[Rfam]
RNA sequence: UUUGCCUCAAACACAAAGGUGUCAUCCCAGUGCUUGACACUGGGAUCCAGUUUUUAUUACCUGGUGCGCUCAUUUAGAGUUAAGUUUCCUGGAUUCCAGUGUCAAGCACUGGAAUGACACCAUCAUAAAGGAACAAG
Numbered sequence: 001u002u003u004g005c006c007u008c009a010a011a012c013a014c015a016a017a018g019g020u021g022u023c024a025u026c027c028c029a030g031u032g033c034u035u036g037a038c039a040c041u042g043g044g045a046u047c048c049a050g051u052u053u054u055u056a057u058u059a060c061c062u063g064g065u066g067c068g069c070u071c072a073u074u075u076a077g078a079g080u081u082a083a084g085u086u087u088c089c090u091g092g093a094u095u096c097c098a099g100u101g102u103c104a105a106g107c108a109c110u111g112g113a114a115u116g117a118c119a120c121c122a123u124c125a126u127a128a129a130g131g132a133a134c135a136a137g
Stems, first nucleotide, its partner, number of pairs: 012131001020119006027112024
This 137-nucleotide sequence from Trichonephila clavata belongs to the Rfam family "Wolbachia sRNA 46". The family's RNA type in Rfam is small RNA. A reference for the family is Mayoral et al. (2014), "Wolbachia small noncoding RNAs and their role in cross-kingdom communications", Proc Natl Acad Sci U S A.